[Rfam]
RNA sequence: AUCAAUUAAUCUUAAAUACCACACACACAUCUAUAACCCGCUCCGGGGUGCCUACAUGGUCGGAGUGAGGGAUGUGUGGAGGCCCAAC
Numbered sequence: 001a002u003c004a005a006u007u008a009a010u011c012u013u014a015a016a017u018a019c020c021a022c023a024c025a026c027a028c029a030u031c032u033a034u035a036a037c038c039c040g041c042u043c044c045g046g047g048g049u050g051c052c053u054a055c056a057u058g059g060u061c062g063g064a065g066u067g068a069g070g071g072a073u074g075u076g077u078g079g080a081g082g083c084c085c086a087a088c
Stems, first nucleotide, its partner, number of pairs: 024078008037069001039067007050060003